[Rfam]
RNA: Listeria sRNA rli40
RNA sequence: GAAAUUAUUUUUAAUGUAAGUGAGGCGUCCUUAUGAAAAUUUCUAAACCAGCUUAUUUGGUUUUACUUGUUGUUGGCUUGGUUUUUGUUUUUCUAGGACUAUCUAAUAUAGGAAUCUCUAUUUUUUGGGAUUUUAGCGACUUAGAGAAUUUGAUGGUUGGUGGUUUGUUAAUCAUCAUUGGACUCAUCACACUUAGGAUUCGAUAUUCAUUUAAAAAAAGAGGAUAGAAAAAGCACUGCAAUUAUUGAUUGCAGUGCUUUUUCU
Numbered sequence: 001g002a003a004a005u006u007a008u009u010u011u012u013a014a015u016g017u018a019a020g021u022g023a024g025g026c027g028u029c030c031u032u033a034u035g036a037a038a039a040u041u042u043c044u045a046a047a048c049c050a051g052c053u054u055a056u057u058u059g060g061u062u063u064u065a066c067u068u069g070u071u072g073u074u075g076g077c078u079u080g081g082u083u084u085u086u087g088u089u090u091u092u093c094u095a096g097g098a099c100u101a102u103c104u105a106a107u108a109u110a111g112g113a114a115u116c117u118c119u120a121u122u123u124u125u126u127g128g129g130a131u132u133u134u135a136g137c138g139a140c141u142u143a144g145a146g147a148a149u150u151u152g153a154u155g156g157u158u159g160g161u162g163g164u165u166u167g168u169u170a171a172u173c174a175u176c177a178u179u180g181g182a183c184u185c186a187u188c189a190c191a192c193u194u195a196g197g198a199u200u201c202g203a204u205a206u207u208c209a210u211u212u213a214a215a216a217a218a219a220g221a222g223g224a225u226a227g228a229a230a231a232a233g234c235a236c237u238g239c240a241a242u243u244a245u246u247g248a249u250u251g252c253a254g255u256g257c258u259u260u261u262u263c264u
Base pairs, nucleotide, nucleotide: 006226007225008224009223010222011221012220017213018212019211020210021209022208023207024206027099028098029097030096031095035092036091037090038089039088040087045084046083047082048081049080050079051077052076055073056072059067060066112201113200114199115198116197117196120149121148122147123146124145125144126143127142128141129140151177152176153175154174155173156172157171158170159169160168161167227263228262229261231259232258233257234256235255236254237253238252239251240250241249